[Rfam]
RNA: Small nucleolar RNA R64/Z200 family
Organism: Apostasia shenzhenica
RNA sequence: AGUCUGCUCUGAUGAAAUUUGAUCUUUUCGCAUGUCAGACUUCAGAGGGAUUAAAUCCCCAAUGAGAAGAAAAUUUCAAUUUUCUGAGCAGAAU
Numbered sequence: 001a002g003u004c005u006g007c008u009c010u011g012a013u014g015a016a017a018u019u020u021g022a023u024c025u026u027u028u029c030g031c032a033u034g035u036c037a038g039a040c041u042u043c044a045g046a047g048g049g050a051u052u053a054a055a056u057c058c059c060c061a062a063u064g065a066g067a068a069g070a071a072a073a074u075u076u077c078a079a080u081u082u083u084c085u086g087a088g089c090a091g092a093a094u
Stems, first nucleotide, its partner, number of pairs: 001094001003092005047060003